RNA sequence: GAUUCGGGAAUUGGCCACUACCUCGCAGUCACGUGAUCCACAAACGCAGCCGGCUCUGGUGCUUGGGAAAAAUACAAUUUUCUUUUGUUUUCCUGGGCGCCGCAACGUUUUGCGUUCAUUUCAUAUUUCAUGUGAUGUGACGUAGUGGAACAUUCCUGACG
Numbered sequence: 001g002a003u004u005c006g007g008g009a010a011u012u013g014g015c016c017a018c019u020a021c022c023u024c025g026c027a028g029u030c031a032c033g034u035g036a037u038c039c040a041c042a043a044a045c046g047c048a049g050c051c052g053g054c055u056c057u058g059g060u061g062c063u064u065g066g067g068a069a070a071a072a073u074a075c076a077a078u079u080u081u082c083u084u085u086u087g088u089u090u091u092c093c094u095g096g097g098c099g100c101c102g103c104a105a106c107g108u109u110u111u112g113c114g115u116u117c118a119u120u121u122c123a124u125a126u127u128u129c130a131u132g133u134g135a136u137g138u139g140a141c142g143u144a145g146u147g148g149a150a151c152a153u154u155c156c157u158g159a160c161g
Base pairs, nucleotide, nucleotide: 004159005158006157007156008155009154010153015148016147017146018145019144020143021142023140024139025138026137029135030134031133032132034130035129036128
Dot-bracket structure: ...(((((((....(((((((.((((..((((.(((...........................................................................................))).)))).)))).)))))))....)))))))..

Shown here is a 161-nucleotide sequence from Drosophila virilis, a member of the family "mir-989 microRNA precursor family". NCBI's taxonomy places the organism under Eukaryota, Panarthropoda, Pterygota, Drosophilinae, Drosophila. The family's consensus secondary structure was predicted with RNAalifold.